This 451-nucleotide part of an RNA from Aedes aegypti belongs to the Rfam family "Eukaryotic large subunit ribosomal RNA".
[Rfam]
RNA sequence: GCGAACGAAACAGAACGCUAUCUUAACGGAAAUGCUGUGCAGUACGAGAGGAACCACAGCUUCGAACCAAUGGCUCAAUACUAGUUCGACCGGACUUUGGUAUAACGCUACGUUCGUUGGAUUAUGCCUGAACGCCUCUAAGGUCGUAACCAAACCGAGCUGAUAGUGUCCCCUUAUAGGUCGUCGGUGAUCAUGUGGCAAAAAACCUACAAGACCUGCUAGCGUGAUCUCACGUUGGCAUCUUAUUGCAUGCACGCAGACAAAGCCCUCGCGCGCGGCGUCAUACAGCAAGUAUCUAAGAUACUGGAACGCUGGUGGCGCUGCUCAGCAUCAAUAUAUGAUUUCGAUACCUGAGACCCCCUACAAACGAUAGGUUUACAGGCUGGGAGUUGCGAGUUGCAGAGAGGUGUACAUUUCGAUCCUCUCAGACUACCCUUGCUUGGAGGUUGCA
Dot-bracket structure: ................((((((....(((..(.((((((...............)))))).)(((((...(((....((((.(((((....)))))...))))....))).))))).(((.....((((...........)))).....)))..)))....)))))).......(((.((...................................................................................................................................................................)).))).....((((.((((.......))))....(((((.(((.((.....(..(.(..(((((....)))))..))..)....))..)))..)))))..))))...